Overview:
A member of the RNA family "ALIL pseudoknot", 117 nucleotides long. The family's consensus secondary structure is taken from published work. A search with the family's covariance model found it, with a score of 107 bits.

[Rfam]
RNA sequence: CACAUAUUUAGCACAGGCGGAGCUCGACCGCCGAACGAAAUCAUGAUUACGUUUAUCGACGAUCAUCGAUCGUUGUACGGAGUCGAGUCGAUCUGCAGGGUAUUGCCGAUUGCUCCG
Numbered sequence: 001c002a003c004a005u006a007u008u009u010a011g012c013a014c015a016g017g018c019g020g021a022g023c024u025c026g027a028c029c030g031c032c033g034a035a036c037g038a039a040a041u042c043a044u045g046a047u048u049a050c051g052u053u054u055a056u057c058g059a060c061g062a063u064c065a066u067c068g069a070u071c072g073u074u075g076u077a078c079g080g081a082g083u084c085g086a087g088u089c090g091a092u093c094u095g096c097a098g099g100g101u102a103u104u105g106c107c108g109a110u111u112g113c114u115c116c117g
Stems, first nucleotide, its partner, number of pairs: 016032005078117005089112002092109002095106004